RNA: Small nucleolar RNA SNORA11
Organism: Camelus dromedarius
RNA sequence: GGGGUGCACUCAGAGCAGGGGACCUGAGGAAAUGACUCCUCUGUUUACAACACACCCAACAGGAAUCUGGGUUCAUUGUGACGAGGGGCACAAAACUUGAGGCCUUUCUAUGAACACAUACCCUACACGU
Numbered sequence: 001g002g003g004g005u006g007c008a009c010u011c012a013g014a015g016c017a018g019g020g021g022a023c024c025u026g027a028g029g030a031a032a033u034g035a036c037u038c039c040u041c042u043g044u045u046u047a048c049a050a051c052a053c054a055c056c057c058a059a060c061a062g063g064a065a066u067c068u069g070g071g072u073u074c075a076u077u078g079u080g081a082c083g084a085g086g087g088g089c090a091c092a093a094a095a096c097u098u099g100a101g102g103c104c105u106u107u108c109u110a111u112g113a114a115c116a117c118a119u120a121c122c123c124u125a126c127a128c129g130u
Base pairs, nucleotide, nucleotide: 002057003056004055005054006053013046014045015044016043017042018041019040020039021038024034070123071122073120077116078115079114082112083111085105086104087103089101091099092098093097